[Rfam]
RNA sequence: UAAGCAGGGAUGUGUGUAUCGGCAUUGUGCAUGAUGAAUGCACUCUGAAUCCGAAAGUGUUCCCUGCAACAACCACCACAAUCUGGGGUGGAAGAUGGGCAGUUGUGUUUCAAUCUCCAUUGAAUUUCUCAACAAUCAUCUUCCCCACAUUU
Numbered sequence: 001u002a003a004g005c006a007g008g009g010a011u012g013u014g015u016g017u018a019u020c021g022g023c024a025u026u027g028u029g030c031a032u033g034a035u036g037a038a039u040g041c042a043c044u045c046u047g048a049a050u051c052c053g054a055a056a057g058u059g060u061u062c063c064c065u066g067c068a069a070c071a072a073c074c075a076c077c078a079c080a081a082u083c084u085g086g087g088g089u090g091g092a093a094g095a096u097g098g099g100c101a102g103u104u105g106u107g108u109u110u111c112a113a114u115c116u117c118c119a120u121u122g123a124a125u126u127u128c129u130c131a132a133c134a135a136u137c138a139u140c141u142u143c144c145c146c147a148c149a150u151u152u
Stems, first nucleotide, its partner, number of pairs: 004067007014043006088146001090144009102133004
A member of the RNA family "small nucleolar RNA snoR135" from Tripterygium wilfordii, 152 nucleotides long. Gene Ontology terms of the family: RNA processing and nucleolus. A reference for the family is Chen and Wu (2009), "Mining small RNA sequencing data: a new approach to identify small nucleolar RNAs in Arabidopsis", Nucleic Acids Res. The family has 6 seed sequences and 837 matches in Rfam 15.1.